[Rfam]
Lysine riboswitch aptamer: a 176-nucleotide RNA sequence from Anaerobranca californiensis. The family's consensus secondary structure is taken from published work.
RNA sequence: AAGAUUGAUAGAGGUGCGGUGUCUAAAAGUACUAUAUCUGAGGUAAGCACAAUGAAGGUAUAGGAAAGGAGCCACCGCCGAAGCGUAGAGUUGAUGCUUUAAAACUCUAUAGCUGGUACUGUAUAGAAUAUAUACAGUACUGUCACAAACCUAGUUUGUGGAGAGCUAUCAUGAAA
Numbered sequence: 001a002a003g004a005u006u007g008a009u010a011g012a013g014g015u016g017c018g019g020u021g022u023c024u025a026a027a028a029g030u031a032c033u034a035u036a037u038c039u040g041a042g043g044u045a046a047g048c049a050c051a052a053u054g055a056a057g058g059u060a061u062a063g064g065a066a067a068g069g070a071g072c073c074a075c076c077g078c079c080g081a082a083g084c085g086u087a088g089a090g091u092u093g094a095u096g097c098u099u100u101a102a103a104a105c106u107c108u109a110u111a112g113c114u115g116g117u118a119c120u121g122u123a124u125a126g127a128a129u130a131u132a133u134a135c136a137g138u139a140c141u142g143u144c145a146c147a148a149a150c151c152u153a154g155u156u157u158g159u160g161g162a163g164a165g166c167u168a169u170c171a172u173g174a175a176a
Stems, first nucleotide, its partner, number of pairs: 006171006016078006023071002032063008082114003085110008115141011143161007
Taxonomically the source falls in Anaerobranca californiensis (Bacteria, Bacillati, Proteinivoracaceae, Anaerobranca).